Notes
The record is a 73-nucleotide RNA from Megalops atlanticus, which matches "mir-126 microRNA precursor family" in Rfam. Gene Ontology terms of the family: miRNA-mediated post-transcriptional gene silencing and RISC complex. Taxonomically the source falls in Megalops (Eukaryota, Eumetazoa, Deuterostomia, Craniata).
[Rfam]
RNA sequence: CCACAGUGCAUUAUUACUCACGGUACGAGUUGUGAGUGGCAUAGCGCGUACCAAAAGUAAUAAUGGACCGUGC
Numbered sequence: 001c002c003a004c005a006g007u008g009c010a011u012u013a014u015u016a017c018u019c020a021c022g023g024u025a026c027g028a029g030u031u032g033u034g035a036g037u038g039g040c041a042u043a044g045c046g047c048g049u050a051c052c053a054a055a056a057g058u059a060a061u062a063a064u065g066g067a068c069c070g071u072g073c
Base pairs, nucleotide, nucleotide: 009065010064011063012062013061014060015059016058017057018056022052023051024050025049026048027047029045